[Rfam]
RNA sequence: GAAAGUAAAGGGGCAGUACCAAUUUCUUGGUUUGACAAGAAAUUGGUUAUUGCUCCUUUACUA
Number, nucleotide and partner (000 for none) at each position: 001g000002a000003a000004a000005g000006u000007a059008a058009a057010g056011g055012g054013g053014c052015a051016g050017u049018a048019c000020c000021a044022a043023u000024u041025u040026c039027u038028u037029g036030g000031u000032u000033u000034g000035a000036c029037a028038a027039g026040a025041a024042a000043u022044u021045g000046g000047u000048u018049a017050u016051u015052g014053c013054u012055c011056c010057u009058u008059u007060a000061c000062u000063a000
The record is a 63-nucleotide RNA from Trigastrotheca stricta, which matches "Plastid-psbA-4 3UTR RNA" in Rfam. Taxonomically the source falls in Trigastrotheca (Eukaryota, Viridiplantae, Mesangiospermae, Molluginaceae). On this family, see Richter et al., Plant Commun 2023: "Retrograde signaling in plants: A critical review focusing on the GUN pathway and beyond". Its Rfam clan is "Plastid-psbA 3UTR RNA clan". Rfam describes the family as follows. Plastid psbA-4 is a non-coding RNA (ncRNA) present in plastids. The base pairs follow the family's consensus structure, which was predicted with LocARNA. It is annotated as a cis-regulatory element.